[Rfam]
RNA: MIR535 microRNA precursor family
Organism: Hevea brasiliensis
RNA sequence: AUCAUUGGUUGACAACGAGAGAGAGCACGUUUGUCAACAUUUCAUGCUAGUGACAUGACUGUUUACAUGCGUGCUCUCUAACGUUGUCAUAAAAUG
Numbered sequence: 001a002u003c004a005u006u007g008g009u010u011g012a013c014a015a016c017g018a019g020a021g022a023g024a025g026c027a028c029g030u031u032u033g034u035c036a037a038c039a040u041u042u043c044a045u046g047c048u049a050g051u052g053a054c055a056u057g058a059c060u061g062u063u064u065a066c067a068u069g070c071g072u073g074c075u076c077u078c079u080a081a082c083g084u085u086g087u088c089a090u091a092a093a094a095u096g
Stems, first nucleotide, its partner, number of pairs: 010089005016083002020079002023076001025074006032067003